This 352-nucleotide RNA sequence from endosymbiont of Escarpia spicata belongs to the Rfam family "Bacterial RNase P class A". Gene Ontology terms of the family: ribonuclease P activity, dimeric ribonuclease P complex and tRNA processing. Ribonuclease P (RNase P) is a ubiquitous endoribonuclease, found in archaea, bacteria and eukarya as well as chloroplasts and mitochondria. The match comes from Rfam's covariance-model search (355 bits). The family is grouped with related families in Rfam's "RNaseP clan".
RNA sequence: GGAGUCGGCCGGACAGUCGCUGUUUUACCUCGGUAGAGCGGAGGAAAGUCCGGGCUCCAUAGGGCAGGGUGCCAGGUAACGCCUGGGAGGCGAAAGCCUACGGAAAGUGCCGCAGAAAAUAUACCGCCUAAGCCUCUUCGGAGGCCGGUAAGGGUGAAAUGGUGCGGUAAGAGCGCACCGCGCUGUCGGUAACGAUAGUGGCAAGGUAAACCCCACCCGGAGCAAGACCAAAUAGGGGAACAUUGGUGCGGCCCGCACUGUUCCCGGGUAGGUUGCUUGAGGUGUGCGGCGACGCGCAUCCCAGAUGAAUGACUGUUCUCGACAGAACCCGGCUUACAGGCCGGCUCCCACC
Number, nucleotide and partner (000 for none) at each position: 001g348002g347003a346004g345005u344006c343007g342008g341009c340010c339011g337012g317013a316014c315015a314016g313017u312018c311019g000020c041021u040022g039023u038024u037025u036026u035027a034028c033029c000030u000031c000032g000033g028034u027035a026036g025037a024038g023039c022040g021041g020042a000043g000044g000045a000046a335047a334048g333049u000050c332051c331052g330053g329054g328055c222056u221057c220058c219059a000060u000061a000062g254063g253064g252065c251066a000067g218068g217069g216070u215071g214072c086073c085074a084075g083076g082077u000078a000079a000080c000081g000082c076083c075084u074085g073086g072087g101088a099089g098090g097091c096092g000093a000094a000095a000096g091097c090098c089099u088100a000101c087102g213103g212104a000105a000106a000107g211108u210109g207110c206111c205112g000113c000114a000115g000116a000117a000118a000119a000120u000121a000122u000123a000124c153125c152126g149127c148128c147129u000130a000131a000132g145133c144134c143135u142136c141137u000138u000139c000140g000141g136142a135143g134144g133145c132146c000147g128148g127149u126150a000151a000152g125153g124154g000155u000156g000157a000158a000159a000160u000161g179162g178163u177164g176165c175166g174167g000168u000169a000170a000171g000172a000173g000174c166175g165176c164177a163178c162179c161180g202181c200182g199183c198184u197185g196186u195187c194188g193189g000190u000191a000192a000193c188194g187195a186196u185197a184198g183199u182200g181201g000202c180203a000204a000205g111206g110207u109208a000209a000210a108211c107212c103213c102214c071215a070216c069217c068218c067219g058220g057221a056222g055223c000224a000225a000226g274227a273228c272229c271230a000231a000232a000233u000234a000235g000236g265237g264238g263239a262240a261241c260242a000243u000244u000245g259246g258247u257248g256249c255250g000251g065252c064253c063254c062255g249256c248257a247258c246259u245260g241261u240262u239263c238264c237265c236266g000267g000268g000269u000270a000271g229272g228273u227274u226275g000276c000277u000278u000279g000280a000281g300282g299283u298284g297285u296286g295287c294288g293289g000290c000291g000292a000293c288294g287295c286296g285297c284298a283299u282300c281301c000302c000303a000304g000305a000306u000307g000308a000309a000310u000311g018312a017313c016314u015315g014316u013317u012318c000319u000320c000321g000322a000323c000324a000325g000326a000327a000328c054329c053330c052331g051332g050333c048334u047335u046336a000337c011338a000339g010340g009341c008342c007343g006344g005345c004346u003347c002348c001349c000350a000351c000352c000